RNA sequence: UUGAUGUCUUACUGUACGUCGCUUUGGAUAAAAGCGUCUGCUAAAUAAAUGUGA
Numbered sequence: 001u002u003g004a005u006g007u008c009u010u011a012c013u014g015u016a017c018g019u020c021g022c023u024u025u026g027g028a029u030a031a032a033a034g035c036g037u038c039u040g041c042u043a044a045a046u047a048a049a050u051g052u053g054a
Base pairs, nucleotide, nucleotide: 013043014041015040016039020036021035022034023033024032025031
Notes: The record is a 54-nucleotide RNA from Synaphobranchus kaupii, which matches "UnaL2 LINE 3' element" in Rfam. It is annotated as a cis-regulatory element. A reference for the family is Baba et al. (2004), "Solution structure of an RNA stem-loop derived from the 3' conserved region of eel LINE UnaL2", RNA. The eel long interspersed element (LINE) UnaL2 and its partner short interspersed element (SINE) share a conserved 3' tail containing a stem-loop that is critical for their retrotransposition. Presumably, the first step of retrotransposition is the recognition of their 3' tails by UnaL2-encoded reverse transcriptase. The solution structure of a 17-nucleotide RNA derived from the 3' tail of UnaL2 was determined by NMR. Rfam 15.1 lists 493,311 matches to the family in 99 species. The organism belongs to Synaphobranchus, within Eukaryota. The match comes from Rfam's covariance-model search (57 bits).